[Rfam]
RNA sequence: AGGAUGUUGUUGCAGAUGUAACAGCAGAAGUGUUCACAUUGUGGCCUGUGUCAGAUUCUUAUGCAUCUGUGAAUUCUGCU
Dot-bracket structure: ............[[[..[[...((((((((((.......))).]]]]]...(((((.(....).)))))....)))))))

The family of this 80-nucleotide RNA sequence from Chelonia mydas is "Mammalian CPEB3 ribozyme".
Rfam links the family to the GO term RNA nuclease activity.
A search with the family's covariance model found it, with a score of 46 bits.
Pairs were carried over by alignment from the consensus structure, which is taken from published work.
NCBI's taxonomy places the organism under Eukaryota, Dipnotetrapodomorpha, Sauria, Cheloniidae, Chelonia.